RNA: Bacterial large subunit ribosomal RNA, nucleotides 613 to 844
RNA sequence: GAGUUGUCGUUUUUGGCAAGGCUAAGGACAAUGAUGUCCGGAGCCGUAGCGAAAGCGAGUCCGAAGAGGGCGUGCAGUCAAAGGCGGCAGACGCGAAACCAAGUGAUCUACCCUUGUCCAGGUUGAAGUCCCGGUAACACGGGAUGGAGGACCGCACCGAUAAGCGUUGAAAAGCUUCCGGAUGAGAUGAGGGUAGGAGUGAAAGGCCAAUCAAACUUGGAGAUAGCUCGUA
Numbered sequence: 001g002a003g004u005u006g007u008c009g010u011u012u013u014u015g016g017c018a019a020g021g022c023u024a025a026g027g028a029c030a031a032u033g034a035u036g037u038c039c040g041g042a043g044c045c046g047u048a049g050c051g052a053a054a055g056c057g058a059g060u061c062c063g064a065a066g067a068g069g070g071c072g073u074g075c076a077g078u079c080a081a082a083g084g085c086g087g088c089a090g091a092c093g094c095g096a097a098a099c100c101a102a103g104u105g106a107u108c109u110a111c112c113c114u115u116g117u118c119c120a121g122g123u124u125g126a127a128g129u130c131c132c133g134g135u136a137a138c139a140c141g142g143g144a145u146g147g148a149g150g151a152c153c154g155c156a157c158c159g160a161u162a163a164g165c166g167u168u169g170a171a172a173a174g175c176u177u178c179c180g181g182a183u184g185a186g187a188u189g190a191g192g193g194u195a196g197g198a199g200u201g202a203a204a205g206g207c208c209a210a211u212c213a214a215a216c217u218u219g220g221a222g223a224u225a226g227c228u229c230g231u232a
Stems, first nucleotide, its partner, number of pairs: 005089013020045004026039003049056002059071004092230002095227001099220006108196011119184001121153004128145006157181003162177004199207002